RNA sequence: GAAAUCAAGCAGAAGUUAUCCGCUUCUCACCUUACGAUUACGUUGUAAGGUUAAUAGCUAAGUAUGUUUAUGUUCUUAGUUGUGUUGUGUAUUUAAGCGGAUGGCGUAUGCUAUCCGCUUUUUAUUUUCGUA
Numbered sequence: 001g002a003a004a005u006c007a008a009g010c011a012g013a014a015g016u017u018a019u020c021c022g023c024u025u026c027u028c029a030c031c032u033u034a035c036g037a038u039u040a041c042g043u044u045g046u047a048a049g050g051u052u053a054a055u056a057g058c059u060a061a062g063u064a065u066g067u068u069u070a071u072g073u074u075c076u077u078a079g080u081u082g083u084g085u086u087g088u089g090u091a092u093u094u095a096a097g098c099g100g101a102u103g104g105c106g107u108a109u110g111c112u113a114u115c116c117g118c119u120u121u122u123u124a125u126u127u128u129c130g131u132a
Stems, first nucleotide, its partner, number of pairs: 011027006029051003034046005096119010
Shown here is a 132-nucleotide RNA sequence from Alkalithermobacter paradoxus, a member of the family "Ribosomal protein L20 leader". The family's consensus secondary structure was predicted with CMfinder. The match comes from Rfam's covariance-model search (67 bits). A reference for the family is Zengel and Lindahl (1994), "Diverse mechanisms for regulating ribosomal protein synthesis in Escherichia coli", Prog Nucleic Acid Res Mol Biol.